RAGATH-18 RNA: a 73-nucleotide RNA sequence. It is annotated as a small RNA.
[Rfam]
RNA sequence: CCUUUGGAGUGUUAUACCAAAUGUGAGUAGUAUAUUCUUAGGGAUUAUGAAAACAGACACGUUGAAUAAGGAA
Number, nucleotide and partner (000 for none) at each position: 001c071002c070003u069004u068005u000006g000007g000008a000009g060010u059011g058012u057013u056014a000015u000016a000017c000018c000019a000020a000021a000022u055023g054024u053025g000026a000027g000028u000029a000030g048031u047032a046033u000034a000035u044036u043037c000038u000039u000040a000041g000042g000043g036044a035045u000046u032047a031048u030049g000050a000051a000052a000053a024054c023055a022056g013057a012058c011059a010060c009061g000062u000063u000064g000065a000066a000067u000068a004069a003070g002071g001072a000073a000